A member of the RNA family "RT-2 RNA", 169 nucleotides long.
By type it is a small RNA.
The sequence is in the family's curated seed alignment.
[Rfam]
Nucleotides: 169
Stems, first nucleotide, its partner, number of pairs: 001014004028149003032145004037141001038105004043099005052060002063090007109140005115135001117126001
Number, partner (000 for none) and nucleotide at each position: 001014c002013g003012c004011c005000c006000g007000c008000a009000a010000g011004g012003g013002c014001g015000c016000g017000a018000c019000g020000a021000c022000a023000a024000a025000c026000u027000g028149a029148u030147a031000g032145c033144u034143c035142g036000a037141c038105a039104c040103g041102g042000a043099g044098g045097g046096c047095c048000g049000g050000a051000c052060g053059c054000u055000c056000c057000u058000u059053g060052c061000a062000u063090g064089g065088c066087g067086g068085c069084g070000g071000c072000g073000u074000g075000c076000g077000c078000g079000u080000u081000u082000g083000c084069c085068g086067c087066c088065g089064u090063u091000u092000c093000a094000u095047g096046g097045c098044c099043u100000c101000a102041c103040c104039g105038u106000u107000a108000c109140g110139c111138a112137a113136u114000u115135u116000a117126g118000a119000c120000a121000a122000c123000g124000c125000g126117c127000c128000g129000a130000g131000a132000a133000a134000g135115a136113a137112u138111u139110g140109u141037g142035c143034g144033a145032g146000g147030u148029a149028u150000u151000u152000u153000u154000a155000u156000u157000u158000u159000g160000u161000u162000a163000u164000g165000a166000a167000c168000a169000g